The family of this 184-nucleotide RNA sequence from Alkalicoccus halolimnae is "6S / SsrS RNA". NCBI's taxonomy places the organism under Bacteria, Bacillati, Bacillota, Caryophanales, Alkalicoccus.
[Rfam]
RNA sequence: ACUUGCCUGCGGUGUUGGUGAACUUCAAGUUUAAUUCGAACCGAACACCAAUUCACUGAGGGAGCCUUACAUUGAGUGAACAACAGCAUGCCUGUUUCAGGAAGCUGAAAUUCACUCUGCAGGCACCCACCUGCCUAAGGCGGGUUCGUGAAAUCUGGAAGAUAACCGCACAUGCGGGCAUCAU
Numbered sequence: 001a002c003u004u005g006c007c008u009g010c011g012g013u014g015u016u017g018g019u020g021a022a023c024u025u026c027a028a029g030u031u032u033a034a035u036u037c038g039a040a041c042c043g044a045a046c047a048c049c050a051a052u053u054c055a056c057u058g059a060g061g062g063a064g065c066c067u068u069a070c071a072u073u074g075a076g077u078g079a080a081c082a083a084c085a086g087c088a089u090g091c092c093u094g095u096u097u098c099a100g101g102a103a104g105c106u107g108a109a110a111u112u113c114a115c116u117c118u119g120c121a122g123g124c125a126c127c128c129a130c131c132u133g134c135c136u137a138a139g140g141c142g143g144g145u146u147c148g149u150g151a152a153a154u155c156u157g158g159a160a161g162a163u164a165a166c167c168g169c170a171c172a173u174g175c176g177g178g179c180a181u182c183a184u
Base pairs, nucleotide, nucleotide: 004180005179006178007177008176009175010174011173012171013170014169015168017167018166019165035150037148038147039146040145041144042143060128061127062126064124065123066122067121071118074117075116076115077114078113079112080111086105087104091101092100093099094098
Dot-bracket structure: ...((((((((((((.(((...............(.((((((.................(((.((((...(..(((((((.....((...((((...))))..)).....))))))))..)))).)))..............)))))).)..............))))))).))))))))....